[Rfam]
Nucleotides: 095
Stems, first nucleotide, its partner, number of pairs: 009087003013083002018078002023073003029068018
Number, partner (000 for none) and nucleotide at each position: 001000c002000c003000u004000u005000a006000g007000c008000c009087c010086u011085g012000g013083u014082u015000g016000c017000a018078g019077c020000g021000g022000c023073a024072u025071c026000c027000u028000u029068u030067a031066a032065u033064a034063a035062a036061a037060a038059a039058a040057g041056c042055c043054a044053u045052u046051c047000a048000u049000u050000c051046g052045a053044a054043u055042g056041g057040c058039u059038u060037u061036u062035u063034u064033u065032a066031u067030u068029a069000a070000a071025g072024a073023u074000a075000a076000a077019g078018c079000g080000g081000a082014a083013g084000a085011c086010a087009g088000g089000u090000u091000c092000c093000c094000g095000g

Rfam assigns this 95-nucleotide RNA sequence from Flavobacterium enshiense to the family "Flavo-1 RNA". The family's RNA type in Rfam is small RNA.